[Rfam]
RNA sequence: GUGGGUAUAGUUCAGGGGUAGAGCGCCAGAUUGUGGUUCUGGUUGUCGUGGGUUCAAAUCCCACUACCCACC
Numbered sequence: 001g002u003g004g005g006u007a008u009a010g011u012u013c014a015g016g017g018g019u020a021g022a023g024c025g026c027c028a029g030a031u032u033g034u035g036g037u038u039c040u041g042g043u044u045g046u047c048g049u050g051g052g053u054u055c056a057a058a059u060c061c062c063a064c065u066a067c068c069c070a071c072c
Stems, first nucleotide, its partner, number of pairs: 001071007010024004026042005048064005
RNA: tRNA
Organism: Treponema denticola